[Rfam]
RNA sequence: GAUGAAUCCAUUGCCUGCCAAGCCCGGCGAUUGCCGUUGCCGGGGGAGGGCGGGCGAAAUGAGGAGUCC
Numbered sequence: 001g002a003u004g005a006a007u008c009c010a011u012u013g014c015c016u017g018c019c020a021a022g023c024c025c026g027g028c029g030a031u032u033g034c035c036g037u038u039g040c041c042g043g044g045g046g047a048g049g050g051c052g053g054g055c056g057a058a059a060u061g062a063g064g065a066g067u068c069c
Base pairs, nucleotide, nucleotide: 011057012056013055015053016052017051018050019049023044024043025042026041027040028039029038030037031036
Dot-bracket structure: ..........(((.(((((...(((((((((....)))))))))....))))).)))............